[Rfam]
RNA sequence: UAGUACAUCAAAUUGACUAUGAAAACAUAUGUUAACAUAUGUUUUCAUAGUCAAUUUGAUGUGCUGAA
Numbered sequence: 001u002a003g004u005a006c007a008u009c010a011a012a013u014u015g016a017c018u019a020u021g022a023a024a025a026c027a028u029a030u031g032u033u034a035a036c037a038u039a040u041g042u043u044u045u046c047a048u049a050g051u052c053a054a055u056u057u058g059a060u061g062u063g064c065u066g067a068a
Stems, first nucleotide, its partner, number of pairs: 005062018025044001027042001